[Rfam]
RNA sequence: AAUAGGAGAAUGACAAAUCAGAUUUUUCCUCCUCAUUUUUAGCAUUUUUAGUUGGAUUUGAAUUUUUUUUUAAGAGGAAAAAGAUGAGAAUCGGGAGAAAAAAUCUGAUUUGUCAUCAUCCUAUU
Numbered sequence: 001a002a003u004a005g006g007a008g009a010a011u012g013a014c015a016a017a018u019c020a021g022a023u024u025u026u027u028c029c030u031c032c033u034c035a036u037u038u039u040u041a042g043c044a045u046u047u048u049u050a051g052u053u054g055g056a057u058u059u060g061a062a063u064u065u066u067u068u069u070u071u072a073a074g075a076g077g078a079a080a081a082a083g084a085u086g087a088g089a090a091u092c093g094g095g096a097g098a099a100a101a102a103a104u105c106u107g108a109u110u111u112g113u114c115a116u117c118a119u120c121c122u123a124u125u
Base pairs, nucleotide, nucleotide: 001125002124003123004122005121006120007119010116011115012114013113014112015111016110017109018108019107020106021105022104023103024102025101026100027099029097030096031095032094033093035091036090037089038088039087041085045081046080047079048078
A member of the RNA family "MIR7504 microRNA precursor family" from Gossypium laxum, 125 nucleotides long. It scores 87 bits against the family's covariance model. Rfam links the family to the GO terms RISC complex and miRNA-mediated post-transcriptional gene silencing.